[Rfam]
RNA sequence: UGAUGACUGUUCCUCCUAUUGUCAUUAGUUCUGGCAUUAGGAUUUUAGGUCAUCAUAAAUUAAAGUUUGAUUUUCUUCACUCAGAGAAUAUUAAGGUAAUGGGAUUAUCUGUGUACUCUCUGAAAUUUGCGGAGUCAAACACUU
Number, nucleotide and partner (000 for none) at each position: 001u055002g054003a053004u052005g051006a050007c049008u048009g000010u000011u000012c000013c000014u042015c041016c040017u039018a038019u000020u036021g035022u034023c033024a000025u000026u000027a000028g000029u000030u000031c000032u000033g023034g022035c021036a020037u000038u018039a017040g016041g015042a014043u000044u000045u000046u000047a000048g008049g007050u006051c005052a004053u003054c002055a001056u000057a000058a000059a000060u000061u000062a000063a000064a000065g000066u000067u000068u000069g136070a135071u134072u133073u132074u131075c000076u000077u000078c000079a000080c000081u123082c122083a121084g120085a119086g118087a117088a000089u115090a114091u000092u000093a000094a110095g109096g108097u107098a106099a000100u000101g000102g000103g000104a000105u000106u098107a097108u096109c095110u094111g000112u000113g000114u090115a089116c000117u087118c086119u085120c084121u083122g082123a081124a000125a000126u000127u000128u000129g000130c000131g074132g073133a072134g071135u070136c069137a000138a000139a000140c000141a000142c000143u000144u000
Shown here is a 144-nucleotide RNA from Dipodomys ordii, a member of the family "Small nucleolar RNA SNORA79". The family's RNA type in Rfam is H/ACA-box small nucleolar RNA. The organism belongs to Dipodomys, within Eukaryota. Rfam's curators write: ACA65 (SNORA79) is a member of the H/ACA class of snoRNAs that guide the sites of modification of uridines to pseudouridines. This snoRNA was identified by computational screening and its expression in mouse experimentally verified by Northern blot and primer extension analysis.